[Rfam]
RNA sequence: CAACGGCACCUACCCACAACGGAUCGUCCGGCACGUACCUGCCGGUGGAGAGGGAAGCAA
Numbered sequence: 001c002a003a004c005g006g007c008a009c010c011u012a013c014c015c016a017c018a019a020c021g022g023a024u025c026g027u028c029c030g031g032c033a034c035g036u037a038c039c040u041g042c043c044g045g046u047g048g049a050g051a052g053g054g055a056a057g058c059a060a
Stems, first nucleotide, its partner, number of pairs: 010052002014048003028045006

The record is a 60-nucleotide sequence from Krasilnikoviella flava, which matches "msiK RNA" in Rfam. The family's RNA type in Rfam is cis-regulatory element. The match comes from Rfam's covariance-model search (61 bits). NCBI's taxonomy places the organism under Bacteria, Bacillati, Micrococcales, Promicromonosporaceae, Krasilnikoviella.